[Rfam]
RNA sequence: GCCAUUGCCACCCUAUAUAUACAUUGUCCUUCGGGACAUGUCCUUUCGGGGACUAUGGAUAUAAACGCGCAUGUAAUACACGGAUCGGACCCGGGGGCGGUACCCGGCGACUCCACCAAACCUCCUUCAUUUGGGGAUCAUGGGGUCGAAACAGGAUCGACGAACGUCUAAAGAUGUUAGCUUUAUCUCGGUGAGUUACCACCGAUAUCGGUACAUUAUAGCUAGUUGCAAAUGACAACAAAGCUCCAAUGGCUCUGGCUGCGUAAGCGGUUCGAUCUAUUGAAACCUUAAGUCCUUACGCUUAGCAGCCUAAGGCGGGGUCCGCAGGUACCUGGCAACAGAAACCUGCACC
Numbered sequence: 001g002c003c004a005u006u007g008c009c010a011c012c013c014u015a016u017a018u019a020u021a022c023a024u025u026g027u028c029c030u031u032c033g034g035g036a037c038a039u040g041u042c043c044u045u046u047c048g049g050g051g052a053c054u055a056u057g058g059a060u061a062u063a064a065a066c067g068c069g070c071a072u073g074u075a076a077u078a079c080a081c082g083g084a085u086c087g088g089a090c091c092c093g094g095g096g097g098c099g100g101u102a103c104c105c106g107g108c109g110a111c112u113c114c115a116c117c118a119a120a121c122c123u124c125c126u127u128c129a130u131u132u133g134g135g136g137a138u139c140a141u142g143g144g145g146u147c148g149a150a151a152c153a154g155g156a157u158c159g160a161c162g163a164a165c166g167u168c169u170a171a172a173g174a175u176g177u178u179a180g181c182u183u184u185a186u187c188u189c190g191g192u193g194a195g196u197u198a199c200c201a202c203c204g205a206u207a208u209c210g211g212u213a214c215a216u217u218a219u220a221g222c223u224a225g226u227u228g229c230a231a232a233u234g235a236c237a238a239c240a241a242a243g244c245u246c247c248a249a250u251g252g253c254u255c256u257g258g259c260u261g262c263g264u265a266a267g268c269g270g271u272u273c274g275a276u277c278u279a280u281u282g283a284a285a286c287c288u289u290a291a292g293u294c295c296u297u298a299c300g301c302u303u304a305g306c307a308g309c310c311u312a313a314g315g316c317g318g319g320g321u322c323c324g325c326a327g328g329u330a331c332c333u334g335g336c337a338a339c340a341g342a343a344a345c346c347u348g349c350a351c352c
Base pairs, nucleotide, nucleotide: 040053041052042051043050044049057188058187059186060185061184067181068180069177070176071175072174081166082165085163086162087161091107092106093105094104095103108148109147110146111145112144113143114142189204190203191202192201195214196213198212199211200210318333319332320331321330324349325348326347327346328345329344
RNA: Alphaproteobacteria transfer-messenger RNA